[Rfam]
RNA sequence: CCCUGACAGCUGCGUGGUGCAGCUGACGCAGCCCACGACAGGAGAAUGACAUG
Numbered sequence: 001c002c003c004u005g006a007c008a009g010c011u012g013c014g015u016g017g018u019g020c021a022g023c024u025g026a027c028g029c030a031g032c033c034c035a036c037g038a039c040a041g042g043a044g045a046a047u048g049a050c051a052u053g
Base pairs, nucleotide, nucleotide: 002042003041004040005039007025008024009023010022011021
This 53-nucleotide RNA belongs to the Rfam family "Mu-gpT-DE RNA".